Rfam assigns this 131-nucleotide RNA sequence from Bos taurus to the family "Small nucleolar RNA SNORA38". By type it is an H/ACA-box small nucleolar RNA. The match comes from Rfam's covariance-model search (140 bits).
[Rfam]
RNA sequence: CUCUCCUACAGAGGCGUGUCUGUGGUUUCCUGUCCUUGGACACGUAAGACUUGGAGGCAAAGAAAUGUGGAUUUGGAGGAGUCUGUGGCCAGCUUCCUCCCUGCAGGCCCAAGAUCAACCAUCCAACAUAG
Dot-bracket structure: .(((((........(((((((..((...)).......)))))))........)))))...........(((.(..................((((.(.....).))))............)))).......
Numbered sequence: 001c002u003c004u005c006c007u008a009c010a011g012a013g014g015c016g017u018g019u020c021u022g023u024g025g026u027u028u029c030c031u032g033u034c035c036u037u038g039g040a041c042a043c044g045u046a047a048g049a050c051u052u053g054g055a056g057g058c059a060a061a062g063a064a065a066u067g068u069g070g071a072u073u074u075g076g077a078g079g080a081g082u083c084u085g086u087g088g089c090c091a092g093c094u095u096c097c098u099c100c101c102u103g104c105a106g107g108c109c110c111a112a113g114a115u116c117a118a119c120c121a122u123c124c125a126a127c128a129u130a131g
Stems, first nucleotide, its partner, number of pairs: 002057005015044007024030002069124003073121001092108004097103001